[Rfam]
RNA sequence: UGCAGUUUCAGGCUUUUCCCAACUACACCUAUUAAUACAUAUUUUAACGUCCUAUUAAAGUUGUAGUUUGGAAAGUUUUGGUUUUGCA
Numbered sequence: 001u002g003c004a005g006u007u008u009c010a011g012g013c014u015u016u017u018c019c020c021a022a023c024u025a026c027a028c029c030u031a032u033u034a035a036u037a038c039a040u041a042u043u044u045u046a047a048c049g050u051c052c053u054a055u056u057a058a059a060g061u062u063g064u065a066g067u068u069u070g071g072a073a074a075g076u077u078u079u080g081g082u083u084u085u086g087c088a
Base pairs, nucleotide, nucleotide: 001088002087003086004085005084008081009080010079011078012077014075015074016073017072018071019070021068022067023066024065025064026063027062029060030059032058033057034056035055036054037053
mir-991 microRNA precursor family: an 88-nucleotide RNA from Drosophila melanogaster.
Gene Ontology terms of the family: miRNA-mediated post-transcriptional gene silencing and RISC complex.
The base pairs follow the family's consensus structure, which was predicted with RNAalifold.